[Rfam]
RNA sequence: GCCUCUUGUGCCUACUGAACUGGUAUCAGUGUAGUACCUGAAGACUGGCUCAGUUCAGCAGGAACAGGAG
Number, nucleotide and partner (000 for none) at each position: 001g000002c000003c070004u069005c068006u067007u000008g065009u064010g000011c062012c061013u060014a000015c058016u057017g056018a055019a054020c053021u052022g051023g050024u000025a000026u048027c047028a046029g045030u044031g000032u000033a000034g000035u000036a000037c000038c000039u000040g000041a000042a000043g000044a030045c029046u028047g027048g026049c000050u023051c022052a021053g020054u019055u018056c017057a016058g015059c000060a013061g012062g011063a000064a009065c008066a000067g006068g005069a004070g003